[Rfam]
RNA sequence: CCCCGCUACAUUGCAGUUGCAUUGCAGUUGCAGUGUGCAGCGCAACUGCAAUGUAACUGCAAUGUAGCGGGG
Numbered sequence: 001c002c003c004c005g006c007u008a009c010a011u012u013g014c015a016g017u018u019g020c021a022u023u024g025c026a027g028u029u030g031c032a033g034u035g036u037g038c039a040g041c042g043c044a045a046c047u048g049c050a051a052u053g054u055a056a057c058u059g060c061a062a063u064g065u066a067g068c069g070g071g072g
Stems, first nucleotide, its partner, number of pairs: 001072004007066010019054001021052011
Shown here is a 72-nucleotide sequence from Cylicocyclus nassatus, a member of the family "mir-33 microRNA precursor family". The match comes from Rfam's covariance-model search (59 bits).